[Rfam]
RNA: tRNA
Organism: Dictyostelium discoideum
RNA sequence: GACACCUUAGCAAAGUGGUUAAUGCGGCGCCCUGCUAAGGCGUUCUCUUCGGAGGCGCAGGUUCGAACCCUGCAGGUGUCG
Number, nucleotide and partner (000 for none) at each position: 001g080002a079003c078004a077005c076006c075007u074008u000009a000010g025011c024012a023013a000014a000015g000016u000017g000018g000019u000020u000021a000022a000023u012024g011025c010026g000027g043028c042029g041030c040031c039032c000033u000034g000035c000036u000037a000038a000039g031040g030041c029042g028043u027044u000045c000046u000047c000048u000049u000050c000051g000052g000053a000054g000055g000056c000057g073058c072059a071060g070061g069062u000063u000064c000065g000066a000067a000068c000069c061070c060071u059072g058073c057074a007075g006076g005077u004078g003079u002080c001081g000